[Rfam]
Rfam assigns this 76-nucleotide RNA sequence from Psychrilyobacter sp. S5 to the family "c-di-GMP-I riboswitch aptamer".

RNA sequence: AAAUAUUUUUGGCAAAGCAGGGGAAAUCCUGUGGCGCAAAACUAAAGGGCCUUUAAAAUGGCAGCCAGUUGCAGAU
Number, nucleotide and partner (000 for none) at each position: 001a000002a000003a000004u000005a000006u000007u000008u000009u000010u000011g000012g037013c036014a000015a000016a000017g032018c031019a030020g029021g028022g027023g000024a000025a000026a000027u022028c021029c020030u019031g018032u017033g000034g000035c000036g013037c012038a000039a000040a070041a069042c068043u067044a000045a000046a000047g066048g065049g062050c061051c060052u000053u000054u000055a000056a000057a000058a000059u000060g051061g050062c049063a000064g000065c048066c047067a043068g042069u041070u040071g000072c000073a000074g000075a000076u000

The family's consensus secondary structure is taken from published work.